Annotation: Rfam assigns this 58-nucleotide sequence from Microvirga vignae to the family "terC RNA".
RNA sequence: ACCGGGGUCCGGGCCCCUCUGGCAGUCUUCUCCAAGGCUGUAAUGUCGGACUCUCUCA
Numbered sequence: 001a002c003c004g005g006g007g008u009c010c011g012g013g014c015c016c017c018u019c020u021g022g023c024a025g026u027c028u029u030c031u032c033c034a035a036g037g038c039u040g041u042a043a044u045g046u047c048g049g050a051c052u053c054u055c056u057c058a
Base pairs, nucleotide, nucleotide: 006052007051008050009049010048011047012046022041023040024039025038026037027036028035029034
Record summary: Taxonomically the source falls in Microvirga (Bacteria, Pseudomonadati, Pseudomonadota, Alphaproteobacteria). Rfam classes the family as a cis-regulatory element. Pairs were carried over by alignment from the consensus structure, which is taken from published work.